[Rfam]
RNA sequence: UAUUAAACGUUGAUUAGGAAAGUAACUAACAGACGCCAUUCAGAGAGUCAUCGGUUGGUGCAAGAUGAUUAGGUAUACGUUAAUGAAAAUCACCUAUGAGUUGUAGAUUGAAUUUAAGUAGAUUCUACUGGGUACUCCCAUUACAGAGACAACAAAUUGUUGUGUUAGUUUGUUUAAGGUACUUGUAAUUAGUCAAGUAUAAAAAAAGGUGGUACCACGUUUAUAACGUCCUUUAG
Numbered sequence: 001u002a003u004u005a006a007a008c009g010u011u012g013a014u015u016a017g018g019a020a021a022g023u024a025a026c027u028a029a030c031a032g033a034c035g036c037c038a039u040u041c042a043g044a045g046a047g048u049c050a051u052c053g054g055u056u057g058g059u060g061c062a063a064g065a066u067g068a069u070u071a072g073g074u075a076u077a078c079g080u081u082a083a084u085g086a087a088a089a090u091c092a093c094c095u096a097u098g099a100g101u102u103g104u105a106g107a108u109u110g111a112a113u114u115u116a117a118g119u120a121g122a123u124u125c126u127a128c129u130g131g132g133u134a135c136u137c138c139c140a141u142u143a144c145a146g147a148g149a150c151a152a153c154a155a156a157u158u159g160u161u162g163u164g165u166u167a168g169u170u171u172g173u174u175u176a177a178g179g180u181a182c183u184u185g186u187a188a189u190u191a192g193u194c195a196a197g198u199a200u201a202a203a204a205a206a207a208g209g210u211g212g213u214a215c216c217a218c219g220u221u222u223a224u225a226a227c228g229u230c231c232u233u234u235a236g
Base pairs, nucleotide, nucleotide: 007101008100015096016095017094018093025084027082028081029080030079036072038070047069048068049067050066051065052064104127105126106125107124108122109121129140130139131138180199181198182197183196184195185194206233207232208231209230217229218228219227220226221225